[Rfam]
RNA sequence: GGCAGCGCAGCCCCUGCGGCCCCCCCCCCCGCACGCUGAGCUAAUCCAGAGAAGAAUUCGCUUUUAAUGAGGAGCGAUACAGCGCUGAACUCUCCAGAGCCAUAAUUAGAGCAAACUAAUUGAAGUUGUGUUUUGACACACUUUCCAAAUUCACGGGUACUGCAUGACAUAUUCACAACACUACUGCUGCACAGCCAUGGCGACAGCAAAAUCAUUAGGCUAAUAACGCUUAUUUGCAUUCUUAUCAUACCAGCAGCACGCCGUUAAACACGGCUUCAACCAGCGCUCGCUUACUAUGAAAGUUUCCACCGAAAGAUAUUAACAGUAAUUAUGAGGACUUUAGUGGAAUCUCUAAUGUUAAGGA
Number, nucleotide and partner (000 for none) at each position: 001g000002g000003c000004a000005g000006c000007g000008c000009a000010g000011c000012c000013c000014c000015u000016g000017c000018g000019g000020c000021c000022c000023c000024c000025c000026c000027c000028c000029c000030c000031g000032c000033a000034c000035g000036c000037u000038g000039a000040g356041c000042u354043a353044a000045u347046c346047c345048a344049g000050a000051g000052a340053a339054g338055a000056a000057u000058u000059c074060g000061c072062u071063u070064u069065u000066a000067a000068u000069g064070a063071g062072g061073a000074g059075c000076g000077a000078u000079a332080c000081a330082g329083c000084g000085c000086u325087g000088a000089a000090c099091u098092c097093u000094c000095c000096a000097g092098a091099g090100c000101c000102a000103u000104a000105a000106u000107u000108a000109g288110a287111g286112c285113a000114a000115a000116c000117u000118a000119a000120u000121u000122g144123a143124a142125g141126u000127u140128g139129u138130g137131u136132u000133u000134u000135g000136a131137c130138a129139c128140a127141c125142u124143u123144u122145c000146c000147a000148a000149a000150u000151u000152c000153a000154c000155g000156g262157g261158u000159a000160c256161u000162g000163c000164a000165u000166g000167a000168c000169a000170u000171a000172u000173u000174c000175a000176c000177a000178a000179c000180a000181c000182u000183a000184c000185u202186g201187c200188u199189g198190c000191a000192c000193a000194g000195c000196c000197a000198u189199g188200g187201c186202g185203a000204c000205a000206g250207c000208a248209a000210a000211a000212u000213c000214a000215u000216u000217a000218g000219g237220c236221u000222a234223a233224u232225a231226a000227c000228g000229c000230u000231u225232a224233u223234u222235u000236g220237c219238a000239u000240u000241c000242u000243u000244a000245u000246c000247a000248u208249a000250c206251c000252a000253g000254c000255a000256g160257c000258a000259c000260g000261c157262c156263g000264u000265u000266a000267a000268a000269c000270a000271c000272g000273g000274c000275u000276u000277c000278a000279a000280c000281c000282a000283g000284c000285g112286c111287u110288c109289g000290c000291u000292u000293a000294c000295u000296a000297u000298g000299a000300a000301a000302g000303u000304u000305u000306c000307c000308a000309c000310c000311g000312a000313a000314a000315g000316a000317u000318a000319u000320u000321a000322a000323c000324a000325g086326u000327a000328a000329u082330u081331a000332u079333g000334a000335g000336g000337a000338c054339u053340u052341u000342a000343g000344u048345g047346g046347a045348a000349u000350c000351u000352c000353u043354a042355a000356u040357g000358u000359u000360a000361a000362g000363g000364a000

ncRNA Repressor of NFAT (nuclear factor of activated T cells): a 364-nucleotide RNA sequence from Nothoprocta ornata.
Pairs were carried over by alignment from the consensus structure.
Lineage of the source: Eukaryota > Opisthokonta > Tetrapoda > Tinamidae > Nothoprocta.
On this family, see Willingham et al., Science 2005: "A strategy for probing the function of noncoding RNAs finds a repressor of NFAT".